About this RNA
The family of this 77-nucleotide RNA sequence is "DUF3800-VIII RNA". Bacteroidetes, Cyanobacteria, Firmicutes, Planctomycetes (1 example), Proteobacteria, Tenericutes (1 example). By type it is a small RNA. The sequence is in the family's curated seed alignment.
RNA sequence: UUGGCCCUAUUUCUUGCGAAGUCUCAAGUUCCACUUGGGAUAGACCCCCACAGAGGGGCUAGCAGAAAUGGGGCUUA
Numbered sequence: 001u002u003g004g005c006c007c008u009a010u011u012u013c014u015u016g017c018g019a020a021g022u023c024u025c026a027a028g029u030u031c032c033a034c035u036u037g038g039g040a041u042a043g044a045c046c047c048c049c050a051c052a053g054a055g056g057g058g059c060u061a062g063c064a065g066a067a068a069u070g071g072g073g074c075u076u077a
Stems, first nucleotide, its partner, number of pairs: 001077001003075011015064003021041009